[Rfam]
This 90-nucleotide sequence from Streptomyces phyllanthi belongs to the Rfam family "sodF sRNA". By type it is a small RNA.
RNA sequence: ACGUCCUGCUCGUGAUCGUCUUCUCACCGCUCAUCGGGCAGGCGGAGGAAAGGAGAACCCCCGCGAGGACGUGACUCGCGGGGGUUCUCC
Numbered sequence: 001a002c003g004u005c006c007u008g009c010u011c012g013u014g015a016u017c018g019u020c021u022u023c024u025c026a027c028c029g030c031u032c033a034u035c036g037g038g039c040a041g042g043c044g045g046a047g048g049a050a051a052g053g054a055g056a057a058c059c060c061c062c063g064c065g066a067g068g069a070c071g072u073g074a075c076u077c078g079c080g081g082g083g084g085u086u087c088u089c090c
Stems, first nucleotide, its partner, number of pairs: 002044002005042007012034004018028001052090016

The pairing is the family consensus, mapped onto this sequence. On this family, see Kim et al., Nucleic Acids Res 2014: "Inverse regulation of Fe- and Ni-containing SOD genes by a Fur family regulator Nur through small RNA processed from 3'UTR of the sodF mRNA". The source organism's lineage runs through Bacteria, Bacillati, Actinomycetes, Kitasatosporales and Streptomyces.